[Rfam]
Makes More Granules Regulator RNA (mmgR): a 78-nucleotide sequence from Sphingomonas ginsenosidivorax. It is annotated as a small RNA. A search with the family's covariance model found it, with a score of 45 bits.
RNA sequence: GGACCUCGCCUUUCAGGCAUCCUCUCCUAAAAACUUUCACGGGCUGGCCUUUCGGGGCCGGCCCUUUUUUUGUCUUUU
Number, nucleotide and partner (000 for none) at each position: 001g000002g000003a000004c000005c000006u000007c000008g018009c017010c016011u015012u000013u000014c000015a011016g010017g009018c008019a000020u000021c000022c000023u000024c000025u000026c000027c000028u000029a000030a000031a000032a000033a000034c000035u000036u000037u000038c000039a000040c000041g064042g063043g062044c061045u060046g059047g058048c057049c056050u000051u000052u000053c000054g000055g000056g049057g048058c047059c046060g045061g044062c043063c042064c041065u000066u000067u000068u000069u000070u000071u000072g000073u000074c000075u000076u000077u000078u000

Rfam describes the family as follows. SuhB later renamed mmgR (makes more granules regulator) was a putative non-coding RNA found multiple times in the Agrobacterium tumefaciens genome and related alpha-proteobacteria. Other non-coding RNAs uncovered in the same analysis include: speF, ybhL, metA, and serC.Several studies inSinorhizobium meliloti showed that suhB element is indeed a non-coding RNA:firstly it was detected on Northern blot and called Sm8RNA, secondly in an RNAseq study referred to as SmelC689.The mutant phenotype's (strain lacking the small RNA) cytoplasm contains higher content of polyhydroxybutyrate (PBH)storage granules than wild type strain. The sRNA is required to limit the PBH intracellular accumulation when the nitrogen-fixing Sinorhizobium meliloti is under condition of surplus carbon in relation to nitrogen. It has been renamed to mmgR. Further study confirmed that mmgR fine-tunes the regulation of PBH storage.Northern blot confirmed the expression of the sRNA in other rhizobia species. MmgR homologues were found in most alpha-proteobacteria. The pairing is the family consensus, mapped onto this sequence. Rfam 15.1 lists 1,791 matches to the family in 918 species. Its Rfam clan is "suhB sRNA clan".